[Rfam]
The family of this 107-nucleotide RNA sequence from Corynebacterium otitidis is "SAM riboswitch aptamer (S box leader)". The match comes from Rfam's covariance-model search (46 bits). Rfam links the family to the GO term regulation of gene expression.

RNA sequence: CACCUAUUCUGAGCGGCCGAAAGACCCGGCUUAACGACGCCGCAGCAACCCACUCCGCCCCGCCUCUUUGGGGACGGGAAGGGUGCUAACGCCGGGUUCGAUGGGAA
Numbered sequence: 001c002a003c004c005u006a007u008u009c010u011g012a013g014c015g016g017c018c019g020a021a022a023g024a025c026c027c028g029g030c031u032u033a034a035c036g037a038c039g040c041c042g043c044a045g046c047a048a049c050c051c052a053c054u055c056c057g058c059c060c061c062g063c064c065u066c067u068u069u070g071g072g073g074a075c076g077g078g079a080a081g082g083g084u085g086c087u088a089a090c091g092c093c094g095g096g097u098u099c100g101a102u103g104g105g106a107a
Stems, first nucleotide, its partner, number of pairs: 003105006013043005021032003026095004044087004049083002053077002091099001